[Rfam]
RNA sequence: UGGGAGUGUUCAUACAUAUGCUGUUUUAUUCAGUUUAACUUGCAUAUCACUUGCCUCCCGAAAAAAUUUGCUUUCUGAUGACCAUGGUUAGUGAAGUCCUGAACUAUGGACAGAUACGAAGCGUACAUUU
Numbered sequence: 001u002g003g004g005a006g007u008g009u010u011c012a013u014a015c016a017u018a019u020g021c022u023g024u025u026u027u028a029u030u031c032a033g034u035u036u037a038a039c040u041u042g043c044a045u046a047u048c049a050c051u052u053g054c055c056u057c058c059c060g061a062a063a064a065a066a067u068u069u070g071c072u073u074u075c076u077g078a079u080g081a082c083c084a085u086g087g088u089u090a091g092u093g094a095a096g097u098c099c100u101g102a103a104c105u106a107u108g109g110a111c112a113g114a115u116a117c118g119a120a121g122c123g124u125a126c127a128u129u130u
Stems, first nucleotide, its partner, number of pairs: 002059005016047004023039003069123006082109003087104003
RNA: Small Cajal body specific RNA 8
Organism: Ignelater luminosus